[Rfam]
The record is a 107-nucleotide RNA sequence from Melghirimyces profundicolus, which matches "SAM riboswitch aptamer (S box leader)" in Rfam. It scores 97 bits against the family's covariance model. NCBI's taxonomy places the organism under Bacteria, Bacilli, Caryophanales, Thermoactinomycetaceae, Melghirimyces. The SAM riboswitch is found upstream of a number of genes which code for proteins involved in methionine or cysteine biosynthesis in Gram-positive bacteria. The SAM riboswitch acts at the level of transcription termination control. The predicted structure consists of a complex stem-loop region followed by a single stem loop terminator region. An alternative and mutually exclusive form involves bases in the 3' segment of helix 1 with those in the 5' region of helix 5 to form a structure termed the anti-terminator form. This entry represents the conserved core of the complex structure involving helices 1-4.
RNA sequence: CUCUUAUCAAGAGCGGCUGAGGGACUGGCCCGAUGAAAGCCCGGCAACCGACCGUCUUCAGGUUAAGGUGCCAAUUCCUGCAGGACUUUUGUCCUGACAGAUGAGAG
Numbered sequence: 001c002u003c004u005u006a007u008c009a010a011g012a013g014c015g016g017c018u019g020a021g022g023g024a025c026u027g028g029c030c031c032g033a034u035g036a037a038a039g040c041c042c043g044g045c046a047a048c049c050g051a052c053c054g055u056c057u058u059c060a061g062g063u064u065a066a067g068g069u070g071c072c073a074a075u076u077c078c079u080g081c082a083g084g085a086c087u088u089u090u091g092u093c094c095u096g097a098c099a100g101a102u103g104a105g106a107g
Stems, first nucleotide, its partner, number of pairs: 001107008013042001015041003021031003025080001027078002043072004048068002050064004076099001081096006